[Rfam]
RNA sequence: UGUGAAAUAAAUCACAAACAAACAUACACCCCUUUGUUUGAACGUGAACAUUUCUCCCAUCCCCUUUGUGAAAAGAAGGCGUCUCUCGUAGAGGCGCCUCUUUUAUUU
Numbered sequence: 001u002g003u004g005a006a007a008u009a010a011a012u013c014a015c016a017a018a019c020a021a022a023c024a025u026a027c028a029c030c031c032c033u034u035u036g037u038u039u040g041a042a043c044g045u046g047a048a049c050a051u052u053u054c055u056c057c058c059a060u061c062c063c064c065u066u067u068g069u070g071a072a073a074a075g076a077a078g079g080c081g082u083c084u085c086u087c088g089u090a091g092a093g094g095c096g097c098c099u100c101u102u103u104u105a106u107u108u
Base pairs, nucleotide, nucleotide: 002056004054005053006052007051008050013046014045015044019040020039021038022037023036024035072104073103074102075101077099078098079097080096081095082094083093084092085091
RNA: Listeria sRNA rli61